[Rfam]
RNA sequence: CCAUGGCGGAGGCUGGGGCCAGCCCCAUGGCGGAGGCUGG
Numbered sequence: 001c002c003a004u005g006g007c008g009g010a011g012g013c014u015g016g017g018g019c020c021a022g023c024c025c026c027a028u029g030g031c032g033g034a035g036g037c038u039g040g
Stems, first nucleotide, its partner, number of pairs: 001030006
Shown here is a 40-nucleotide RNA sequence from Fukomys damarensis, a member of the family "Prion pseudoknot". It is annotated as a cis-regulatory element. Pairs were carried over by alignment from the consensus structure, which is taken from published work. This family represents a predicted pseudoknot structure found in prion protein mRNA. It has been suggested that the family has a possible effect in prion protein translation. The literature on the family includes a 2001 paper in Nucleic Acids Res by Barrette et al., "Pseudoknots in prion protein mRNAs confirmed by comparative sequence analysis and pattern searching".